[Rfam]
RNA sequence: GUGGCUGCUGGUUGGGUGCUUUCUACUGGUGCUGUGCAGAUGCUUUCCCUGAGGCUGCUGUGAGCCUAUAGGGUUUCCCCCUAGGCUAUGGAGCUUG
Numbered sequence: 001g002u003g004g005c006u007g008c009u010g011g012u013u014g015g016g017u018g019c020u021u022u023c024u025a026c027u028g029g030u031g032c033u034g035u036g037c038a039g040a041u042g043c044u045u046u047c048c049c050u051g052a053g054g055c056u057g058c059u060g061u062g063a064g065c066c067u068a069u070a071g072g073g074u075u076u077c078c079c080c081c082u083a084g085g086c087u088a089u090g091g092a093g094c095u096u097g
Stems, first nucleotide, its partner, number of pairs: 003095004007086003010082002014080003018076001021073005028067002031065003036061004042055005
RNA: mir-9058 microRNA precursor family